[Rfam]
RNA sequence: CUCUUAUCAAGAGUGGUGGAGGGACUGGCCCGAUGAUACCCGGCAACCUGCAGAGAUUAUUCUGUACUGGUGCCAAAUCCUGCAAAGGCAAAACACUUUGACAGAUAAGAG
Numbered sequence: 001c002u003c004u005u006a007u008c009a010a011g012a013g014u015g016g017u018g019g020a021g022g023g024a025c026u027g028g029c030c031c032g033a034u035g036a037u038a039c040c041c042g043g044c045a046a047c048c049u050g051c052a053g054a055g056a057u058u059a060u061u062c063u064g065u066a067c068u069g070g071u072g073c074c075a076a077a078u079c080c081u082g083c084a085a086a087g088g089c090a091a092a093a094c095a096c097u098u099u100g101a102c103a104g105a106u107a108a109g110a111g
Stems, first nucleotide, its partner, number of pairs: 001111008013041001015040003021031003025082001027080002042074004047070002049066004078103001083100005
The record is a 111-nucleotide RNA from Fictibacillus enclensis, which matches "SAM riboswitch aptamer (S box leader)" in Rfam.
Pairs were carried over by alignment from the consensus structure, which is taken from published work.
Taxonomically the source falls in Fictibacillus (Bacteria, Bacilli, Caryophanales, Fictibacillaceae).